[Rfam]
RNA sequence: UAAAUUCAAAUAUCCCGUUUAAUCGCUCAUCUAUUAAAAUUAAUAGUAGAAUGUAGUUUCAUACCCGGGAGAAAUUU
Numbered sequence: 001u002a003a004a005u006u007c008a009a010a011u012a013u014c015c016c017g018u019u020u021a022a023u024c025g026c027u028c029a030u031c032u033a034u035u036a037a038a039a040u041u042a043a044u045a046g047u048a049g050a051a052u053g054u055a056g057u058u059u060c061a062u063a064c065c066c067g068g069g070a071g072a073a074a075u076u077u
Base pairs, nucleotide, nucleotide: 013070014069015068016067017066020063021062025057026056027055028053029052030051031049032048033047034046035045036044
RNA: Small nucleolar RNA snR86, nucleotides 938 to 1014